This 195-nucleotide sequence from Hamadaea sp. belongs to the Rfam family "Actinobacteria sRNA Ms_IGR-5". NCBI's taxonomy places the organism under Bacteria, Bacillati, Actinomycetota, Micromonosporaceae, Hamadaea. Rfam classes the family as a small RNA. Pairs were carried over by alignment from the consensus structure.
RNA sequence: ACACGGGAAAGGAGGUGGUCCAGCUGUAUAGCAAUGGGACUCGUGAGGUGGCUGUCCGCUAGCCGCUGUCCUUGACUGCUUCGUCAGGGCCGUGUGACAACGGUGUGGCGAAUACCAGGCAGCUACCCGACCCCCAGGGCUUUCCGGCUCAGUCCAGCCGGUCCGCAUCAGGCGGAACCCUGGGGGUCGCACCAU
Numbered sequence: 001a002c003a004c005g006g007g008a009a010a011g012g013a014g015g016u017g018g019u020c021c022a023g024c025u026g027u028a029u030a031g032c033a034a035u036g037g038g039a040c041u042c043g044u045g046a047g048g049u050g051g052c053u054g055u056c057c058g059c060u061a062g063c064c065g066c067u068g069u070c071c072u073u074g075a076c077u078g079c080u081u082c083g084u085c086a087g088g089g090c091c092g093u094g095u096g097a098c099a100a101c102g103g104u105g106u107g108g109c110g111a112a113u114a115c116c117a118g119g120c121a122g123c124u125a126c127c128c129g130a131c132c133c134c135c136a137g138g139g140c141u142u143u144c145c146g147g148c149u150c151a152g153u154c155c156a157g158c159c160g161g162u163c164c165g166c167a168u169c170a171g172g173c174g175g176a177a178c179c180c181u182g183g184g185g186g187u188c189g190c191a192c193c194a195u
Stems, first nucleotide, its partner, number of pairs: 014056006057110005064103001128189012144161006